[Rfam]
RNA sequence: UAUUUUGCUUUGAUUAGGAGUAUUAGUAGGUUAUUUGUCUUUCAGAGAGCCGCAGUUUGGUGUGAUGUGGUGUCAGAUUCCUAUGAACUCGCCUAUGAGCUUACUUGAGGAAAUGCAAGUACGGUUAAAACCGUUAUAUUUCAAAGUGAAUUCUGAAAUUCUAUUUUUCAGAAUUAAUUAGAGUGGUACCACGAGGAUUAUUAUACCUUCGUCUCUUUC
Numbered sequence: 001u002a003u004u005u006u007g008c009u010u011u012g013a014u015u016a017g018g019a020g021u022a023u024u025a026g027u028a029g030g031u032u033a034u035u036u037g038u039c040u041u042u043c044a045g046a047g048a049g050c051c052g053c054a055g056u057u058u059g060g061u062g063u064g065a066u067g068u069g070g071u072g073u074c075a076g077a078u079u080c081c082u083a084u085g086a087a088c089u090c091g092c093c094u095a096u097g098a099g100c101u102u103a104c105u106u107g108a109g110g111a112a113a114u115g116c117a118a119g120u121a122c123g124g125u126u127a128a129a130a131c132c133g134u135u136a137u138a139u140u141u142c143a144a145a146g147u148g149a150a151u152u153c154u155g156a157a158a159u160u161c162u163a164u165u166u167u168u169c170a171g172a173a174u175u176a177a178u179u180a181g182a183g184u185g186g187u188a189c190c191a192c193g194a195g196g197a198u199u200a201u202u203a204u205a206c207c208u209u210c211g212u213c214u215c216u217u218u219c
Base pairs, nucleotide, nucleotide: 007100008099015095016094017093018092026084027083028082029081030080040072049071050070051069052068053067054066103120104119105118106117107116109114122133123132124131149175150174151173152172153171154170155169156168157167158166180216181215182214183213191212192211193210194209195208

Record summary: Rfam assigns this 219-nucleotide RNA from Clostridium cadaveris to the family "T-box leader". A reference for the family is Grundy et al. (1994), "Interaction between the acceptor end of tRNA and the T box stimulates antitermination in the Bacillus subtilis tyrS gene: a new role for the discriminator base", J Bacteriol. About the family: Uncharged tRNA acts as the effector for transcription antitermination of genes in the T-box leader family. T-boxes are found upstream of many aminoacyl-tRNA synthetase genes and some amino acid biosynthetic genes usually in Gram-positive bacteria. The anticodon of a specific tRNA base pairs to a specifier sequence within the T-box motif, and the NCCA acceptor tail of the tRNA base pairs to a conserved bulge in the T-box antiterminator hairpin.